RNA sequence: GCGUGCGUUUGGGAGGCGUUCGGUUUCGGCCGAGGUUCGGGGUCAGAGCUAGCCUCCCAAACUCUGC
Numbered sequence: 001g002c003g004u005g006c007g008u009u010u011g012g013g014a015g016g017c018g019u020u021c022g023g024u025u026u027c028g029g030c031c032g033a034g035g036u037u038c039g040g041g042g043u044c045a046g047a048g049c050u051a052g053c054c055u056c057c058c059a060a061a062c063u064c065u066g067c
Base pairs, nucleotide, nucleotide: 007062008061009060010059011058012057013056014055015054016053017052020033021032022031023030024029035049036048037047038046
This 67-nucleotide RNA belongs to the Rfam family "RT-13 RNA". It is annotated as a small RNA. The sequence is in the family's curated seed alignment.